[Rfam]
This 224-nucleotide sequence from Mycobacterium lacus belongs to the Rfam family "c-di-AMP riboswitch aptamer (ydaO/yuaA leader)". The match comes from Rfam's covariance-model search (68 bits). On this family, see Barrick et al., Proc Natl Acad Sci U S A 2004: "New RNA motifs suggest an expanded scope for riboswitches in bacterial genetic control".
RNA sequence: CCCUAUAACGCGCCGAGCUCCAUCCAAUAGGCGAGGGAUUCCGACCGCGGAUGGAGGCGGGGGACCCACCAGGUCCGCCGAGAUCGGACCGGAGCCGCGCGGUGGCUCCUUGGGGUGAAGCCGACGUCGUCUCGCCGAAGUACGACGCUGGCCGGGUGACCUCUCUGGUUUGAAUCCAACCCGAACCCGACAGCUGACCUCGCAGGCGUGUAUAGAGAGGAAUU
Numbered sequence: 001c002c003c004u005a006u007a008a009c010g011c012g013c014c015g016a017g018c019u020c021c022a023u024c025c026a027a028u029a030g031g032c033g034a035g036g037g038a039u040u041c042c043g044a045c046c047g048c049g050g051a052u053g054g055a056g057g058c059g060g061g062g063g064a065c066c067c068a069c070c071a072g073g074u075c076c077g078c079c080g081a082g083a084u085c086g087g088a089c090c091g092g093a094g095c096c097g098c099g100c101g102g103u104g105g106c107u108c109c110u111u112g113g114g115g116u117g118a119a120g121c122c123g124a125c126g127u128c129g130u131c132u133c134g135c136c137g138a139a140g141u142a143c144g145a146c147g148c149u150g151g152c153c154g155g156g157u158g159a160c161c162u163c164u165c166u167g168g169u170u171u172g173a174a175u176c177c178a179a180c181c182c183g184a185a186c187c188c189g190a191c192a193g194c195u196g197a198c199c200u201c202g203c204a205g206g207c208g209u210g211u212a213u214a215g216a217g218a219g220g221a222a223u224u
Stems, first nucleotide, its partner, number of pairs: 011208004018056008057203006067112002113188003121151003154182004